[Rfam]
RNA sequence: CUCCCCGAAAUAGCUUUAGGGCUAGCCUCACGGAAGAGUCUGCUGGAGGUAGAGCUACUGGUAGGGCUAGGGCCCCGAGAGGGGUACCGACCCCUGCCAAACUCCGAAUGCUGGCAGAUGCUCCGUGGGAGUCAGACUGUGGGGGAUAAGCUCCAUGGUCGAGAGGGAAAGAGCCCAGACCGCCAGCUAAGGUCCCCAAGUGAUGGCUAAGUGGUAAAGGAAGUGUGCUCGCUAAGACAGCCAGGAGGUUGGCUUAGAGGCAGCCAUCCUUUAAAGAGUGCGUAACAGCUCACUGGUCGAGCGAGCAUGCGCCGAAAAUGUAGCGGGGCUCAAGCCAUCCGCCGAAGCUGCGGGAUCAGCUUUGCUGAUCGGUAGGGGAGCGUUCCCUGCGGGCUGAAGGUAAGCCGAGAGGCUUACUGGACUGCAGGGAAGUGAAAAU
Numbered sequence: 001c002u003c004c005c006c007g008a009a010a011u012a013g014c015u016u017u018a019g020g021g022c023u024a025g026c027c028u029c030a031c032g033g034a035a036g037a038g039u040c041u042g043c044u045g046g047a048g049g050u051a052g053a054g055c056u057a058c059u060g061g062u063a064g065g066g067c068u069a070g071g072g073c074c075c076c077g078a079g080a081g082g083g084g085u086a087c088c089g090a091c092c093c094c095u096g097c098c099a100a101a102c103u104c105c106g107a108a109u110g111c112u113g114g115c116a117g118a119u120g121c122u123c124c125g126u127g128g129g130a131g132u133c134a135g136a137c138u139g140u141g142g143g144g145g146a147u148a149a150g151c152u153c154c155a156u157g158g159u160c161g162a163g164a165g166g167g168a169a170a171g172a173g174c175c176c177a178g179a180c181c182g183c184c185a186g187c188u189a190a191g192g193u194c195c196c197c198a199a200g201u202g203a204u205g206g207c208u209a210a211g212u213g214g215u216a217a218a219g220g221a222a223g224u225g226u227g228c229u230c231g232c233u234a235a236g237a238c239a240g241c242c243a244g245g246a247g248g249u250u251g252g253c254u255u256a257g258a259g260g261c262a263g264c265c266a267u268c269c270u271u272u273a274a275a276g277a278g279u280g281c282g283u284a285a286c287a288g289c290u291c292a293c294u295g296g297u298c299g300a301g302c303g304a305g306c307a308u309g310c311g312c313c314g315a316a317a318a319u320g321u322a323g324c325g326g327g328g329c330u331c332a333a334g335c336c337a338u339c340c341g342c343c344g345a346a347g348c349u350g351c352g353g354g355a356u357c358a359g360c361u362u363u364g365c366u367g368a369u370c371g372g373u374a375g376g377g378g379a380g381c382g383u384u385c386c387c388u389g390c391g392g393g394c395u396g397a398a399g400g401u402a403a404g405c406c407g408a409g410a411g412g413c414u415u416a417c418u419g420g421a422c423u424g425c426a427g428g429g430a431a432g433u434g435a436a437a438a439u
Stems, first nucleotide, its partner, number of pairs: 001380006011024005026131001027129007037122001038119009052105001053103002059099003063095004070088002072085005135160010165176003180353004185349003191343003200340001202339006219313002223310010240297005246270003251265003271275001276291001280289002354370007381434001383431010399418008
Rfam assigns this 439-nucleotide part of an RNA from Desulfurobacterium indicum to the family "Bacterial large subunit ribosomal RNA". Pairs were carried over by alignment from the consensus structure, which is taken from published work. The organism belongs to Desulfurobacterium, within Bacteria.